[Rfam]
RNA sequence: AUUGCAAAUCGUUCUAUCGCUCCCGGCUCCUGGCCGGGGGAGGAAAGUCCGGGCAACACAGAGCAUCCUGCUUCCUAACGGGAAGGCGCCGUUCAGCCGGCGACAGAAAGUGCCACAGAAAAUAAACCGCCGCGACUUGUCGGGGCAAGGGUGAAAACGUGAGGUAAGAGCUCACGGCUUUCCCGGGCGACCGGGAUCGCGGUAAACCUCAGGAGUUGAAAGACCAAAUAGGUCCCGGAUCGGAAGCUGCUCGCUUCUAAUUCCGAUUUAUCGGGAUAGUCGGGAUGGGUAGGUUGCUUGAACCUGUCAGCGAUGGCAGGGCCAGAUAAAUGAUAGAAGUUCACAGAACCCGGCUUAUAGCUUUGCUGCUGAA
Numbered sequence: 001a002u003u004g005c006a007a008a009u010c011g012u013u014c015u016a017u018c019g020c021u022c023c024c025g026g027c028u029c030c031u032g033g034c035c036g037g038g039g040g041a042g043g044a045a046a047g048u049c050c051g052g053g054c055a056a057c058a059c060a061g062a063g064c065a066u067c068c069u070g071c072u073u074c075c076u077a078a079c080g081g082g083a084a085g086g087c088g089c090c091g092u093u094c095a096g097c098c099g100g101c102g103a104c105a106g107a108a109a110g111u112g113c114c115a116c117a118g119a120a121a122a123u124a125a126a127c128c129g130c131c132g133c134g135a136c137u138u139g140u141c142g143g144g145g146c147a148a149g150g151g152u153g154a155a156a157a158c159g160u161g162a163g164g165u166a167a168g169a170g171c172u173c174a175c176g177g178c179u180u181u182c183c184c185g186g187g188c189g190a191c192c193g194g195g196a197u198c199g200c201g202g203u204a205a206a207c208c209u210c211a212g213g214a215g216u217u218g219a220a221a222g223a224c225c226a227a228a229u230a231g232g233u234c235c236c237g238g239a240u241c242g243g244a245a246g247c248u249g250c251u252c253g254c255u256u257c258u259a260a261u262u263c264c265g266a267u268u269u270a271u272c273g274g275g276a277u278a279g280u281c282g283g284g285a286u287g288g289g290u291a292g293g294u295u296g297c298u299u300g301a302a303c304c305u306g307u308c309a310g311c312g313a314u315g316g317c318a319g320g321g322c323c324a325g326a327u328a329a330a331u332g333a334u335a336g337a338a339g340u341u342c343a344c345a346g347a348a349c350c351c352g353g354c355u356u357a358u359a360g361c362u363u364u365g366c367u368g369c370u371g372a373a
Stems, first nucleotide, its partner, number of pairs: 002368001004366005010360001011358001012338007020040009045356003049353005054218004066214005071085005086104001087102004105209002110207002112203003127150002129146003133142003158176006181196006222295004232286006268279004303320007
Dot-bracket structure: .(.(((((.(((((((((.(((((((((...)))))))))....[[[.[[[[[((((........((((((((((.....)))))(((((........)))).)((...(((((............(((((.(((....))).)))..)).......((((((.......))))))....((((((....))))))....)))..)))))))))))))...((((......((((((..............................((((....)))).)))))).....)))).......(((((((....)))))))...........)))))))..........]]]]]]]].).).))))).).....
This 373-nucleotide RNA from Mucilaginibacter ginsenosidivorans belongs to the Rfam family "Bacterial RNase P class A". Taxonomically the source falls in Mucilaginibacter (Bacteria, Pseudomonadati, Bacteroidota, Sphingobacteriia). Rfam classes the family as a ribozyme. A search with the family's covariance model found it, with a score of 253 bits.